[Rfam]
RNA sequence: CCAGAACCUGCUUCAAGUAAUCCAGGAUAGGCUGUGCUCACUCUCUCCAGCCUGUCCUUGAUUACUUGGGCUGGGGGCUGG
Number, nucleotide and partner (000 for none) at each position: 001c000002c080003a079004g078005a000006a000007c075008c074009u073010g072011c000012u070013u000014c068015a067016a066017g065018u064019a063020a062021u061022c060023c000024a058025g057026g056027a055028u054029a053030g052031g051032c050033u049034g000035u000036g000037c000038u000039c000040a000041c000042u000043c000044u000045c000046u000047c000048c000049a033050g032051c031052c030053u029054g028055u027056c026057c025058u024059u000060g022061a021062u020063u019064a018065c017066u016067u015068g014069g000070g012071c000072u010073g009074g008075g007076g000077g000078c004079u003080g002081g000